[Rfam]
RNA: Bacterial RNase P class A
Nucleotides: 357
Base pairs, nucleotide, nucleotide: 001353002352003351004350005349006348007347008346009345010344011342012306013305014304015303016302017301018300020037021036022035023034024033025032026031042340044338046337047336048335049334050333051206052205053204054203058241059240060239061238063202064201065200066199067198068082069081070080071079072078083098085096086095087094088093099197100196103195104194105193106192107191119138120137121134122133123132124131125130146164147163148162149161150160151159166188167186168185169184170183171182172181173180174179210263211262212261213260221253222252223251224250225249233245234244235243236242270289271288272287273286274285275284276283277282
Number, partner (000 for none) and nucleotide at each position: 001353g002352c003351a004350g005349u006348u007347u008346g009345c010344u011342g012306g013305u014304c015303u016302g017301u018300c019000g020037c021036u022035c023034a024033u025032u026031c027000g028000c029000a030000a031026g032025g033024g034023u035022g036021g037020g038000a039000g040000g041000a042340a043000c044338g045000u046337c047336c048335g049334g050333g051206c052205a053204a054203c055000a056000c057000a058241g059240g060239g061238c062000a063202c064201c065200a066199u067198a068082c069081u070080a071079c072078u073000u074000a075000a076000c077000g078072g079071g080070u081069a082068g083098c084000u085096g086095u087094u088093c089000g090000c091000g092000a093088g094087g095086g096085c097000a098083g099197a100196g101000u102000a103195a104194c105193g106192u107191a108000a109000c110000a111000g112000a113000a114000a115000a116000c117000g118000a119138c120137c121134g122133c123132c124131u125130c126000u127000u128000c129000g130125g131124g132123g133122g134121u135000a136000a137120g138119g139000g140000u141000g142000a143000a144000a145000a146164g147163g148162u149161g150160a151159g152000g153000u154000a155000a156000g157000a158000g159151c160150u161149c162148a163147c164146c165000g166188g167186g168185u169184u170183g171182c172181g173180c174179a175000g176000c177000a178000a179174u180173g181172c182171g183170u184169g185168a186167u187000g188166c189000c190000g191107u192106a193105c194104g195103u196100c197099u198067u199066a200065u201064g202063g203054g204053u205052u206051g207000u208000a209000a210263g211262g212261u213260c214000a215000u216000g217000u218000a219000u220000a221253c222252c223251g224250g225249c226000g227000c228000a229000u230000g231000u232000a233245g234244g235243g236242c237000u238061g239060c240059c241058c242236g243235c244234c245233c246000g247000a248000u249225g250224c251223c252222g253221g254000g255000g256000g257000g258000u259000a260213g261212a262211c263210c264000g265000c266000u267000a268000g269000a270289g271288c272287g273286u274285c275284g276283g277282u278000g279000a280000g281000a282277g283276c284275c285274g286273g287272c288271g289270u290000c291000g292000a293000g294000a295000u296000a297000a298000a299000u300018g301017g302016c303015a304014g305013a306012c307000a308000c309000u310000c311000u312000c313000u314000c315000c316000u317000u318000g319000g320000a321000g322000g323000g324000a325000g326000u327000a328000c329000a330000g331000a332000a333050c334049c335048c336047g337046g338044c339000u340042u341000a342011u343000a344010g345009g346008c347007a348006a349005a350004c351003u352002g353001c354000a355000a356000u357000u